RNA sequence: UUUGAUAACCGGAUCUUGAUGUGCCACAGGUGACAGAUUUUAUUUGAUUAUUGAGGGUUUUAUUUGCUAU
Numbered sequence: 001u002u003u004g005a006u007a008a009c010c011g012g013a014u015c016u017u018g019a020u021g022u023g024c025c026a027c028a029g030g031u032g033a034c035a036g037a038u039u040u041u042a043u044u045u046g047a048u049u050a051u052u053g054a055g056g057g058u059u060u061u062a063u064u065u066g067c068u069a070u
Stems, first nucleotide, its partner, number of pairs: 012067001018063001019061001021059001023058003026051001028049002031047001033045001035043001036041001
This 70-nucleotide RNA from Brassica carinata belongs to the Rfam family "Small Cajal body specific RNA ncR26".
It is annotated as a small Cajal body RNA.
Rfam 15.1 lists 19 matches to the family in 16 species.
Gene Ontology terms of the family: RNA processing, Cajal body and nucleolus.